This 75-nucleotide RNA sequence from Zea mays belongs to the Rfam family "Small nucleolar RNA snoR60". It is annotated as a C/D-box small nucleolar RNA. On this family, see Barneche et al., J Biol Chem 2000: "Fibrillarin genes encode both a conserved nucleolar protein and a novel small nucleolar RNA involved in ribosomal RNA methylation in Arabidopsis thaliana". The family has 10 seed sequences and 1,133 matches in Rfam 15.1. The organism belongs to Zea, within Eukaryota.
RNA sequence: AUGUAAAUGAUGAUCUUACUCGGAUUCUCCUUCAAGAGAUCUAGAUGGGUGAUGCAAAUACGAGUUUCUAAUGCG
Numbered sequence: 001a002u003g004u005a006a007a008u009g010a011u012g013a014u015c016u017u018a019c020u021c022g023g024a025u026u027c028u029c030c031u032u033c034a035a036g037a038g039a040u041c042u043a044g045a046u047g048g049g050u051g052a053u054g055c056a057a058a059u060a061c062g063a064g065u066u067u068c069u070a071a072u073g074c075g
Stems, first nucleotide, its partner, number of pairs: 002075004
Pairs were carried over by alignment from the consensus structure, which was predicted with PFOLD.